Overview: A member of the RNA family "MIR473 microRNA precursor family" from Cannabis sativa, 80 nucleotides long. The source organism's lineage runs through Eukaryota, Streptophyta, Magnoliopsida, Cannabaceae and Cannabis. A reference for the family is Lu et al. (2005), "Novel and mechanical stress-responsive MicroRNAs in Populus trichocarpa that are absent from Arabidopsis", Plant Cell. Gene Ontology terms of the family: RISC complex and miRNA-mediated post-transcriptional gene silencing. The family's consensus secondary structure was predicted with WAR.

[Rfam]
RNA sequence: UUUGUCCACUCUCCCUCAAGGGUUUCUAGCUAGCUAUACACAAAGCUGGAUCGAAGUCCUUUGGGGAGAGUGGAGAAAAU
Numbered sequence: 001u002u003u004g005u006c007c008a009c010u011c012u013c014c015c016u017c018a019a020g021g022g023u024u025u026c027u028a029g030c031u032a033g034c035u036a037u038a039c040a041c042a043a044a045g046c047u048g049g050a051u052c053g054a055a056g057u058c059c060u061u062u063g064g065g066g067a068g069a070g071u072g073g074a075g076a077a078a079a080u
Stems, first nucleotide, its partner, number of pairs: 006073010018061009